[Rfam]
The family of this 75-nucleotide sequence from Nothocercus julius is "Small nucleolar RNA SNORD101". The family's RNA type in Rfam is C/D-box small nucleolar RNA. Gene Ontology terms of the family: nucleolus and RNA processing. The literature on the family includes a 2003 paper in Nucleic Acids Res by Vitali et al., "Identification of 13 novel human modification guide RNAs". Clan: SNORD101 clan.
RNA sequence: GUUUGAAUGAUGACUUUCUGCUUUGUCGGAUACCCCUUCACUCUUCCUGUGAGUGACAACAGUGGUCUGACAAAC
Numbered sequence: 001g002u003u004u005g006a007a008u009g010a011u012g013a014c015u016u017u018c019u020g021c022u023u024u025g026u027c028g029g030a031u032a033c034c035c036c037u038u039c040a041c042u043c044u045u046c047c048u049g050u051g052a053g054u055g056a057c058a059a060c061a062g063u064g065g066u067c068u069g070a071c072a073a074a075c
Stems, first nucleotide, its partner, number of pairs: 001075005